[Rfam]
RNA sequence: GCAAUAGCCGACUAGGGUUCCGACUUGCCGACAGGCAAGUGGCUGGUCCGAGAGUUGGCGACCUCCAGUAGAGGUUACACGGCGGGACAAAAGCCCGGGAGAC
Numbered sequence: 001g002c003a004a005u006a007g008c009c010g011a012c013u014a015g016g017g018u019u020c021c022g023a024c025u026u027g028c029c030g031a032c033a034g035g036c037a038a039g040u041g042g043c044u045g046g047u048c049c050g051a052g053a054g055u056u057g058g059c060g061a062c063c064u065c066c067a068g069u070a071g072a073g074g075u076u077a078c079a080c081g082g083c084g085g086g087a088c089a090a091a092a093g094c095c096c097g098g099g100a101g102a103c
Stems, first nucleotide, its partner, number of pairs: 007059006015049002020046002022043001023040006060076006078098001080101001084096003